[Rfam]
RNA sequence: GUGGGACCUGUUCUGUUCAGUAUGUAUGCGGCGGUAUUAAUGAGCUCUGCCCAUAGCACUUGCGGUAAUGGCUCAUGAGCGUACAUCAUUGAUCUUGCUAUCUCCG
Number, nucleotide and partner (000 for none) at each position: 001g000002u000003g104004g103005g102006a101007c000008c000009u000010g098011u097012u000013c000014u000015g000016u000017u092018c091019a090020g089021u088022a086023u085024g084025u083026a082027u081028g080029c079030g000031g000032c000033g000034g000035u000036a000037u000038u000039a000040a076041u075042g074043a073044g072045c071046u070047c000048u067049g066050c065051c064052c062053a061054u000055a000056g000057c000058a000059c000060u000061u053062g052063c000064g051065g050066u049067a048068a000069u000070g046071g045072c044073u043074c042075a041076u040077g000078a000079g029080c028081g027082u026083a025084c024085a023086u022087c000088a021089u020090u019091g018092a017093u000094c000095u000096u000097g011098c010099u000100a000101u006102c005103u004104c003105c000106g000

Shown here is a 106-nucleotide RNA sequence from Bombyx mori, a member of the family "mir-3347 microRNA precursor family". It is one of the family's seed sequences. Pairs were carried over by alignment from the consensus structure, which was predicted with RNAalifold. Gene Ontology terms of the family: miRNA-mediated post-transcriptional gene silencing and RISC complex.